The family of this 126-nucleotide RNA sequence from Aphanomyces euteiches is "U11 spliceosomal RNA".
The base pairs follow the family's consensus structure, which is taken from published work.
RNA sequence: AAAAAGGGUAGGCUUCCCGUAUGAGGCUGCACUGUUCGCAGUGACAGGUGAAUCGUGAUCAAGAGAUUUGCCCUACAUAAUUUCUAAACCGCUGGCAGUGUCGGCUUUAUGAGCUAAUAUUGCCAG
Numbered sequence: 001a002a003a004a005a006g007g008g009u010a011g012g013c014u015u016c017c018c019g020u021a022u023g024a025g026g027c028u029g030c031a032c033u034g035u036u037c038g039c040a041g042u043g044a045c046a047g048g049u050g051a052a053u054c055g056u057g058a059u060c061a062a063g064a065g066a067u068u069u070g071c072c073c074u075a076c077a078u079a080a081u082u083u084c085u086a087a088a089c090c091g092c093u094g095g096c097a098g099u100g101u102c103g104g105c106u107u108u109a110u111g112a113g114c115u116a117a118u119a120u121u122g123c124c125a126g
Stems, first nucleotide, its partner, number of pairs: 008076005013026004027047003030043005048071007093125009104114004
Description: Rfam classes the family as a spliceosomal small nuclear RNA. The source organism's lineage runs through Eukaryota, Stramenopiles, Oomycota, Saprolegniomycetes and Aphanomyces.